[Rfam]
RNA: Iron response element I
RNA sequence: CCGAGUUCUUGCUUCAACAGUGAUUGAACGGAGCCGG
Numbered sequence: 001c002c003g004a005g006u007u008c009u010u011g012c013u014u015c016a017a018c019a020g021u022g023a024u025u026g027a028a029c030g031g032a033g034c035c036g037g
Stems, first nucleotide, its partner, number of pairs: 001037003005034005011029001013028005018022001